The family of this 183-nucleotide RNA sequence from Nocardioides ganghwensis is "Actinobacteria sRNA Ms_IGR-5".
The organism belongs to Nocardioides, within Bacteria.
Pairs were carried over by alignment from the consensus structure.
A search with the family's covariance model found it, with a score of 97 bits.
[Rfam]
RNA sequence: ACACAGAAGGGAGGUGAUCCGGAGAAUGAUUUCUUUUCGGAUGAGUGAGGUGGCUGCCCGCUAGGCAGCCCCGGUCCGCCGACAGCUGCCGGCGAAUCCACUGCAGCCACCCGACCCGCAGGCCCCCGGUGUCAUCCCCCGGGGCCCCUCCCAGAGGGGCAGCAGGCCUGCGGGUCGCUGCAU
Number, nucleotide and partner (000 for none) at each position: 001a000002c000003a000004c000005a000006g000007a000008a000009g000010g000011g000012a000013g058014g057015u056016g055017a000018u053019c000020c000021g000022g000023a000024g000025a000026a000027u000028g000029a000030u000031u000032u000033c000034u000035u000036u000037u000038c000039g000040g000041a000042u000043g000044a000045g000046u000047g000048a000049g000050g000051u000052g000053g018054c000055u016056g015057c014058c013059c094060g093061c092062u091063a000064g090065g089066c088067a000068g086069c085070c000071c000072c081073g080074g079075u000076c000077c000078g000079c074080c073081g072082a000083c000084a000085g069086c068087u000088g066089c065090c064091g062092g061093c060094g059095a000096a000097u000098c000099c000100a000101c000102u000103g000104c000105a000106g000107c000108c000109a000110c000111c000112c177113g176114a175115c174116c173117c172118g171119c170120a169121g168122g167123c166124c165125c000126c143127c142128g000129g140130u000131g138132u000133c000134a000135u000136c000137c000138c131139c000140c129141g000142g127143g126144g000145c000146c000147c000148c000149u000150c000151c000152c000153a000154g000155a000156g000157g000158g000159g000160c000161a000162g000163c000164a000165g124166g123167c122168c121169u120170g119171c118172g117173g116174g115175u114176c113177g112178c000179u000180g000181c000182a000183u000